[Rfam]
RNA sequence: CUAUGCCUGGCUCCCUGUAUGCCAUACUCUAAGCUCAUCGACUAUUGAUGAUCUCCGUGAAUGGCGUAUGAGGAGCCAUGCAUAU
Dot-bracket structure: .(((((.(((((((.(((((((((..(.(...........................).)..))))))))).))))))).))))).